[Rfam]
The family of this 49-nucleotide RNA sequence from Pseudidiomarina atlantica is "L31-Gammaproteobacteria ribosomal protein leader". The family's RNA type in Rfam is cis-regulatory leader. The base pairs follow the family's consensus structure, which is taken from published work. On this family, see Eckert and Weinberg, BMC Microbiol 2020: "Discovery of 20 novel ribosomal leader candidates in bacteria and archaea". The sequence is in the family's curated seed alignment. The family is grouped with related families in Rfam's "Ribosomal Protein L31 Leader clan". The organism belongs to Pseudidiomarina, within Bacteria.
RNA sequence: CGUAUGGUGUCCGGCAACAGAUCGGAUGGCGAUGCGGCCUAACUGAGGU
Numbered sequence: 001c002g003u004a005u006g007g008u009g010u011c012c013g014g015c016a017a018c019a020g021a022u023c024g025g026a027u028g029g030c031g032a033u034g035c036g037g038c039c040u041a042a043c044u045g046a047g048g049u
Base pairs, nucleotide, nucleotide: 001036002035003034004033005032007030008029011025012024013023014022015020